[Rfam]
RNA: TPP riboswitch aptamer (THI element)
Organism: Pelosinus fermentans
RNA sequence: AUUCAUGUCAAGGGGAGCUGGAGGAGCCGGCUGAGAGAUAGAUCUGAAAUCUAUGACCCUUUUUAACCUGAUCUGGGUAAUGCCAGCGGAGGGAUGAGCGAUAGAGUCUUU
Numbered sequence: 001a002u003u004c005a006u007g008u009c010a011a012g013g014g015g016a017g018c019u020g021g022a023g024g025a026g027c028c029g030g031c032u033g034a035g036a037g038a039u040a041g042a043u044c045u046g047a048a049a050u051c052u053a054u055g056a057c058c059c060u061u062u063u064u065a066a067c068c069u070g071a072u073c074u075g076g077g078u079a080a081u082g083c084c085a086g087c088g089g090a091g092g093g094a095u096g097a098g099c100g101a102u103a104g105a106g107u108c109u110u111u
Base pairs, nucleotide, nucleotide: 008097009096010095011061012060013059014058017031018030019029020028021027038054039053040052041051042050067092068091069090073086074085075084076083